RNA sequence: AAAUUGUAUAGGCUUAAUUCACAUAUAGUGAAGCGGGGGAACCAAUUUUUUGGGGCGAAUUCCUUUCUAAAAGGAUAGGGUAACUCUUUCAGCCCGAGCCCGGCAGCUAACCUCGUAGGCCUUGAAAGAGGGGUAUA
Number, nucleotide and partner (000 for none) at each position: 001a000002a000003a000004u000005u000006g000007u000008a000009u000010a000011g121012g120013c119014u118015u000016a000017a000018u032019u031020c030021a000022c000023a000024u000025a000026u000027a000028g000029u000030g020031a019032a018033g116034c115035g114036g113037g112038g111039g000040a000041a000042c000043c052044a051045a000046u000047u000048u000049u000050u000051u044052g043053g101054g100055g099056c000057g000058a000059a000060u000061u075062c074063c073064u072065u000066u000067c000068u000069a000070a000071a000072a064073g063074g062075a061076u000077a000078g095079g094080g093081u092082a000083a000084c000085u000086c000087u000088u000089u000090c000091a000092g081093c080094c079095c078096g000097a000098g000099c055100c054101c053102g000103g000104c000105a000106g000107c000108u000109a000110a000111c038112c037113u036114c035115g034116u033117a000118g014119g013120c012121c011122u000123u000124g000125a000126a000127a000128g000129a000130g000131g000132g000133g000134u000135a000136u000137a000